Annotation:
This 312-nucleotide RNA sequence from Nitrosopumilus sp. b1 belongs to the Rfam family "Archaeal signal recognition particle RNA". The family's RNA type in Rfam is non-coding RNA gene. The family's consensus secondary structure is taken from published work. A search with the family's covariance model found it, with a score of 106 bits.
RNA sequence: UAGUAGGUAGGAUCAGGGUGCCAGCCGUGCCCUUUUCUGAAACCGGCUAUACGCAGAGAUCAGUAACUGUUGGGUAAAUCUCUAGAUAGGUAAUUCCCGCUUGGUGUGCGGAAAUGAAAUCACGCCGAGGCGGGUGGUUGCAGUUCUGGAAAUAUCCGAAGGGAUAACUUCCAAGAGCGAACCAGCGAAAGGGAUGAGGUCCGGGAGGGAGCAAUCCUAAGUUGGAGCAUCCACGCUUCCUCGUCAACGUGGCGGAUCUUGUAUGCCUUGAAAUGGGGCUAUCCGUCUAGACUGGAACCAACAGAACUACUA
Numbered sequence: 001u002a003g004u005a006g007g008u009a010g011g012a013u014c015a016g017g018g019u020g021c022c023a024g025c026c027g028u029g030c031c032c033u034u035u036u037c038u039g040a041a042a043c044c045g046g047c048u049a050u051a052c053g054c055a056g057a058g059a060u061c062a063g064u065a066a067c068u069g070u071u072g073g074g075u076a077a078a079u080c081u082c083u084a085g086a087u088a089g090g091u092a093a094u095u096c097c098c099g100c101u102u103g104g105u106g107u108g109c110g111g112a113a114a115u116g117a118a119a120u121c122a123c124g125c126c127g128a129g130g131c132g133g134g135u136g137g138u139u140g141c142a143g144u145u146c147u148g149g150a151a152a153u154a155u156c157c158g159a160a161g162g163g164a165u166a167a168c169u170u171c172c173a174a175g176a177g178c179g180a181a182c183c184a185g186c187g188a189a190a191g192g193g194a195u196g197a198g199g200u201c202c203g204g205g206a207g208g209g210a211g212c213a214a215u216c217c218u219a220a221g222u223u224g225g226a227g228c229a230u231c232c233a234c235g236c237u238u239c240c241u242c243g244u245c246a247a248c249g250u251g252g253c254g255g256a257u258c259u260u261g262u263a264u265g266c267c268u269u270g271a272a273a274u275g276g277g278g279c280u281a282u283c284c285g286u287c288u289a290g291a292c293u294g295g296a297a298c299c300a301a302c303a304g305a306a307c308u309a310c311u312a
Stems, first nucleotide, its partner, number of pairs: 001312005007307002011061004015033007036057004067304007075296001078293001082290003087285001089283004094278004100270001103267009113257001115255001120252005126243005132237002134234004139229003143178005149172001151170002153166005182225005191218005200209003